[Rfam]
RNA sequence: GUCAGCCCCCAUCCUAAGCAGGCCAUCCACGGUAAGAGUUCCCAUAGGGAACCGCCUGCUUGGGUGCCCAAAAGGGCAUGUUGGGGGACAGGAGGA
Numbered sequence: 001g002u003c004a005g006c007c008c009c010c011a012u013c014c015u016a017a018g019c020a021g022g023c024c025a026u027c028c029a030c031g032g033u034a035a036g037a038g039u040u041c042c043c044a045u046a047g048g049g050a051a052c053c054g055c056c057u058g059c060u061u062g063g064g065u066g067c068c069c070a071a072a073a074g075g076g077c078a079u080g081u082u083g084g085g086g087g088a089c090a091g092g093a094g095g096a
Stems, first nucleotide, its partner, number of pairs: 005089001006087006015062009036053001038052005065078005
RNA: DUF1874 RNA